[Rfam]
The family of this 103-nucleotide RNA sequence from Niallia nealsonii is "TPP riboswitch aptamer (THI element)". Rfam links the family to the GO term thiamine pyrophosphate binding. It scores 82 bits against the family's covariance model.
RNA sequence: GGAAUCCACUAGGGGAGCCAAUUUAGGCUGAGACAAGAAUUAUCUUGGACCCUUUGAACCUGAUCUAGUUCAUACUAGCGUAGGAAAGUGGAGUCGGCAUAAC
Dot-bracket structure: .....(((((((((..(((......)))......((((....))))...)))).....((((..((((......))))..))))..)))))............